[Rfam]
RNA: nhaA-I RNA
Organism: Aquabacterium soli
RNA sequence: GGGUGCCCGCUUUGCGGCGUGGCAGGUUGUUUGCGCUGGUCGGGCCGCCACG
Numbered sequence: 001g002g003g004u005g006c007c008c009g010c011u012u013u014g015c016g017g018c019g020u021g022g023c024a025g026g027u028u029g030u031u032u033g034c035g036c037u038g039g040u041c042g043g044g045c046c047g048c049c050a051c052g
Stems, first nucleotide, its partner, number of pairs: 005023003008019004034052002037050004